[Rfam]
tRNA: a 100-nucleotide sequence from Penicillium citrinum.
Taxonomically the source falls in Penicillium (Eukaryota, Dikarya, saccharomyceta, Eurotiales).
Rfam classes the family as a transfer RNA.
Transfer RNA (tRNA) molecules are approximately 80 nucleotides in length.
RNA sequence: GCCCCUAUAGCUCAGUGGUAUGAGCGCAGCACUUGUAAUAUUACCGUAUUAUAACGGUGAUGGCAUGCUGAGGUCCGUCGUUCGAUCCGGCGUGGGGGCU
Numbered sequence: 001g002c003c004c005c006u007a008u009a010g011c012u013c014a015g016u017g018g019u020a021u022g023a024g025c026g027c028a029g030c031a032c033u034u035g036u037a038a039u040a041u042u043a044c045c046g047u048a049u050u051a052u053a054a055c056g057g058u059g060a061u062g063g064c065a066u067g068c069u070g071a072g073g074u075c076c077g078u079c080g081u082u083c084g085a086u087c088c089g090g091c092g093u094g095g096g097g098g099c100u
Stems, first nucleotide, its partner, number of pairs: 001099007010025004027070005076092005